RNA sequence: GAGCGGCAGGAUGCGAGGCCGGGGCACUGUCUGAGAGGCCUAAUGAUUCUCACAGUGAACCGGUCUCUUUUUCAGCCCCUCA
Numbered sequence: 001g002a003g004c005g006g007c008a009g010g011a012u013g014c015g016a017g018g019c020c021g022g023g024g025c026a027c028u029g030u031c032u033g034a035g036a037g038g039c040c041u042a043a044u045g046a047u048u049c050u051c052a053c054a055g056u057g058a059a060c061c062g063g064u065c066u067c068u069u070u071u072u073c074a075g076c077c078c079c080u081c082a
Stems, first nucleotide, its partner, number of pairs: 006076002009073002015067007025057006033051003
Shown here is an 82-nucleotide RNA sequence from Denticeps clupeoides, a member of the family "mir-128 microRNA precursor family".
The family's consensus secondary structure was predicted with RNAalifold.
For this family Rfam cites "The developmental miRNA profiles of zebrafish as determined by small RNA cloning" (Chen et al., Genes Dev, 2005).
NCBI's taxonomy places the organism under Eukaryota, Deuterostomia, Teleostei, Osteoglossocephalai, Denticeps.